[Rfam]
RNA sequence: GGGCAGGCGUGGCCGAGGGGAUACUUCGUUCCAAUGGUAGGAAAUCUUGCUAGAUCAAGGUUGAACGGGAUCAAAACCCGGAUAUCACCUGGUGCUGUCCUGCUUUUUU
Dot-bracket structure: .((((((....((((.((.(....((.(...........................................).))..........).)))))).....)))))).....
The family of this 109-nucleotide sequence from Candidula unifasciata is "Vault RNA".
The family's consensus secondary structure is taken from published work.
A search with the family's covariance model found it, with a score of 36 bits.
The family's RNA type in Rfam is non-coding RNA gene.
About the family: This family of RNAs are found as part of the enigmatic vault ribonucleoprotein complex. The complex consists of a major vault protein (MVP), two minor vault proteins (VPARP and TEP1), and several small untranslated RNA molecules.